[Rfam]
A member of the RNA family "Caulobacter sRNA CC0196" from Phenylobacterium hankyongense, 60 nucleotides long. Pairs were carried over by alignment from the consensus structure, which was predicted with RNAalifold. Rfam classes the family as a small RNA. Rfam 15.1 lists 25 matches to the family in 25 species. Lineage of the source: Bacteria > Pseudomonadota > Alphaproteobacteria > Caulobacteraceae > Phenylobacterium. A search with the family's covariance model found it, with a score of 41 bits.
RNA sequence: UCCUUGAAGACACCCCACCAUCACCGACUUUUCAAAGCCCGGCGCUCGCGCCGGGCUCUU
Numbered sequence: 001u002c003c004u005u006g007a008a009g010a011c012a013c014c015c016c017a018c019c020a021u022c023a024c025c026g027a028c029u030u031u032u033c034a035a036a037g038c039c040c041g042g043c044g045c046u047c048g049c050g051c052c053g054g055g056c057u058c059u060u
Stems, first nucleotide, its partner, number of pairs: 036057008